[Rfam]
Nucleotides: 110
Base pairs, nucleotide, nucleotide: 020099021098022097023096025094026093029090030089031088034085035084036083038081039080040079
Number, partner (000 for none) and nucleotide at each position: 001000c002000u003000u004000u005000u006000a007000u008000u009000g010000g011000a012000c013000g014000u015000u016000g017000a018000c019000u020099g021098u022097c023096a024000c025094g026093u027000g028000u029090u030089g031088u032000g033000c034085u035084u036083u037000u038081a039080u040079u041000g042000g043000a044000c045000g046000u047000u048000a049000a050000u051000u052000u053000u054000g055000u056000g057000c058000a059000c060000c061000u062000a063000a064000u065000u066000a067000a068000u069000g070000u071000c072000a073000a074000c075000c076000u077000c078000c079040a080039a081038u082000a083036a084035a085034a086000a087000c088031a089030u090029g091000a092000u093026a094025c095000a096023u097022g098021g099020c100000g101000g102000u103000c104000a105000a106000c107000g108000u109000u110000c